Notes: A member of the RNA family "Plasmid-encoded Shigella sRNA A" from Cedecea neteri, 93 nucleotides long. Rfam classes the family as a small RNA. NCBI's taxonomy places the organism under Bacteria, Gammaproteobacteria, Enterobacterales, Enterobacteriaceae, Cedecea. On this family, see Peng et al., PLoS One 2011: "An integrated approach for finding overlooked genes in Shigella". The sequence is in the family's curated seed alignment.
RNA sequence: UGGCUGAGAAAAGAAUUUUAAUUUUUAUAAGAGACCGGAGACAAUUAGCGGUCUCAGGCGACAGGCACAAAACGGAGAGAAACUAUGUUUGAA
Numbered sequence: 001u002g003g004c005u006g007a008g009a010a011a012a013g014a015a016u017u018u019u020a021a022u023u024u025u026u027a028u029a030a031g032a033g034a035c036c037g038g039a040g041a042c043a044a045u046u047a048g049c050g051g052u053c054u055c056a057g058g059c060g061a062c063a064g065g066c067a068c069a070a071a072a073c074g075g076a077g078a079g080a081a082a083c084u085a086u087g088u089u090u091g092a093a
Stems, first nucleotide, its partner, number of pairs: 001067002004064003008059001013055002017051002019047005073091004078086001